[Rfam]
RNA sequence: AUUAUCUUAUUGAGCUCCUUUCUGUCGAUUGGUGGCAGUUUAUGGAUUCACACGAGAAGAAGAGACAAUUCACAUUAGAAUUAUUUUGCCUUCUGUCUUCACAGAGGUAUAUUCUGCUGAGCUGUGAGACAUUU
Numbered sequence: 001a002u003u004a005u006c007u008u009a010u011u012g013a014g015c016u017c018c019u020u021u022c023u024g025u026c027g028a029u030u031g032g033u034g035g036c037a038g039u040u041u042a043u044g045g046a047u048u049c050a051c052a053c054g055a056g057a058a059g060a061a062g063a064g065a066c067a068a069u070u071c072a073c074a075u076u077a078g079a080a081u082u083a084u085u086u087u088g089c090c091u092u093c094u095g096u097c098u099u100c101a102c103a104g105a106g107g108u109a110u111a112u113u114c115u116g117c118u119g120a121g122c123u124g125u126g127a128g129a130c131a132u133u134u
Base pairs, nucleotide, nucleotide: 003059005057006056007055008054014051016046017045018044022038023037024036025035026034070127071126072125073124074123090107091106092105093104094103095102
Rfam assigns this 134-nucleotide sequence from Suricata suricatta to the family "Small nucleolar RNA SNORA75". Rfam links the family to the GO terms RNA processing and nucleolus. The family has 6 seed sequences and 414 matches in Rfam 15.1. Rfam classes the family as an H/ACA-box small nucleolar RNA. Lineage of the source: Eukaryota > Bilateria > Gnathostomata > Teleostomi > Suricata.